[Rfam]
RNA sequence: UCCGGCAGCCCUUCUUGGGCGUUUCCUCCCUAGACUUCGGGCCGCUCUUCGGAGCGGCCUUUUUUCUUGCCUCAU
Numbered sequence: 001u002c003c004g005g006c007a008g009c010c011c012u013u014c015u016u017g018g019g020c021g022u023u024u025c026c027u028c029c030c031u032a033g034a035c036u037u038c039g040g041g042c043c044g045c046u047c048u049u050c051g052g053a054g055c056g057g058c059c060u061u062u063u064u065u066c067u068u069g070c071c072u073c074a075u
Stems, first nucleotide, its partner, number of pairs: 008020004039060009
Rfam assigns this 75-nucleotide RNA from Methylobacterium sp. BTF04 to the family "Makes More Granules Regulator RNA (mmgR)". From the family's description: SuhB later renamed mmgR (makes more granules regulator) was a putative non-coding RNA found multiple times in the Agrobacterium tumefaciens genome and related alpha-proteobacteria. Other non-coding RNAs uncovered in the same analysis include: speF, ybhL, metA, and serC.Several studies inSinorhizobium meliloti showed that suhB element is indeed a non-coding RNA:firstly it was detected on Northern blot and called Sm8RNA, secondly in an RNAseq study referred to as SmelC689.The mutant phenotype's (strain lacking the small RNA) cytoplasm contains higher content of polyhydroxybutyrate (PBH)storage granules than wild type strain. The sRNA is required to limit the PBH intracellular accumulation when the nitrogen-fixing Sinorhizobium meliloti is under condition of surplus carbon in relation to nitrogen. It has been renamed to mmgR. Further study confirmed that mmgR fine-tunes the regulation of PBH storage.Northern blot confirmed the expression of the sRNA in other rhizobia species. The base pairs follow the family's consensus structure.